Small nucleolar RNA R11/Z151: a 90-nucleotide sequence from Manihot esculenta.
Gene Ontology terms of the family: nucleolus and RNA processing.
[Rfam]
Nucleotides: 090
Stems, first nucleotide, its partner, number of pairs: 001090005
Number, partner (000 for none) and nucleotide at each position: 001090g002089g003088g004087c005086u006000u007000a008000u009000g010000a011000u012000g013000a014000u015000a016000a017000u018000a019000u020000a021000a022000u023000u024000a025000u026000c027000u028000u029000a030000g031000c032000g033000g034000a035000u036000u037000u038000c039000a040000g041000u042000g043000a044000g045000a046000u047000a048000a049000a050000c051000u052000u053000a054000u055000u056000u057000a058000u059000c060000a061000g062000u063000g064000a065000u066000c067000u068000g069000a070000u071000u072000g073000u074000u075000a076000c077000a078000c079000a080000c081000a082000c083000u084000g085000a086005g087004g088003c089002c090001u